This 108-nucleotide sequence from Ferrovibrio terrae belongs to the Rfam family "TPP riboswitch aptamer (THI element)". Taxonomically the source falls in Ferrovibrio (Bacteria, Pseudomonadota, Alphaproteobacteria, Rhodospirillales). The base pairs follow the family's consensus structure, which is taken from published work.

RNA sequence: CCCCAGCUGAGGGGGAGCCGAUUGGCGGCUGAGAGGUCCGGGUGAGCCGGACGACCCCUCGAACCUGAUCCGGUUGAUACCGGCGUAGGGAUCAGCGGUUUGUCAGCA
Numbered sequence: 001c002c003c004c005a006g007c008u009g010a011g012g013g014g015g016a017g018c019c020g021a022u023u024g025g026c027g028g029c030u031g032a033g034a035g036g037u038c039c040g041g042g043u044g045a046g047c048c049g050g051a052c053g054a055c056c057c058c059u060c061g062a063a064c065c066u067g068a069u070c071c072g073g074u075u076g077a078u079a080c081c082g083g084c085g086u087a088g089g090g091a092u093c094a095g096c097g098g099u100u101u102g103u104c105a106g107c108a
Base pairs, nucleotide, nucleotide: 006096007095008094009093010092011058012057013056014055017029018028019027020026036052037051038050039049040048064089065088066087067086070083071082072081073080